[Rfam]
This 78-nucleotide RNA sequence from Prodigiosinella confusarubida belongs to the Rfam family "tpke11". In Yersinia located in ICR upstream dnaJ (chaperone)gene. A search with the family's covariance model found it, with a score of 68 bits. The family's consensus secondary structure was predicted with WAR. Its family is annotated with response to temperature stimulus in the Gene Ontology.

RNA sequence: UACUGUUGCUGGCAACCAAGCACGGGCGUCGGGGAAACUCUACGCCCGUGCACGCAUGUUGAGGGCAGGGCAAAAGAA
Numbered sequence: 001u002a003c004u005g006u007u008g009c010u011g012g013c014a015a016c017c018a019a020g021c022a023c024g025g026g027c028g029u030c031g032g033g034g035a036a037a038c039u040c041u042a043c044g045c046c047c048g049u050g051c052a053c054g055c056a057u058g059u060u061g062a063g064g065g066c067a068g069g070g071c072a073a074a075a076g077a078a
Stems, first nucleotide, its partner, number of pairs: 004018002020051009031040003